[Rfam]
RNA sequence: UUAUUUAUGUCUGGAAUAGAUCUUUAUUUAGUUAUGCCGAACCCAAAUCUGAUUGCUCGGAAUUGCUCAUGAAAAGUAAUGUGAACAAUAACUUAUUAAGAUUUUAAUUGAAA
Numbered sequence: 001u002u003a004u005u006u007a008u009g010u011c012u013g014g015a016a017u018a019g020a021u022c023u024u025u026a027u028u029u030a031g032u033u034a035u036g037c038c039g040a041a042c043c044c045a046a047a048u049c050u051g052a053u054u055g056c057u058c059g060g061a062a063u064u065g066c067u068c069a070u071g072a073a074a075a076g077u078a079a080u081g082u083g084a085a086c087a088a089u090a091a092c093u094u095a096u097u098a099a100g101a102u103u104u105u106a107a108u109u110g111a112a113a
Stems, first nucleotide, its partner, number of pairs: 004111002007108001008106002014102001017099001020096002027091001029088001031086003

The family of this 113-nucleotide RNA sequence from Populus tomentosa is "MIR480 microRNA precursor family".
Rfam links the family to the GO terms RISC complex and miRNA-mediated post-transcriptional gene silencing.
Pairs were carried over by alignment from the consensus structure, which was predicted with WAR.
A reference for the family is Lu et al. (2005), "Novel and mechanical stress-responsive MicroRNAs in Populus trichocarpa that are absent from Arabidopsis", Plant Cell.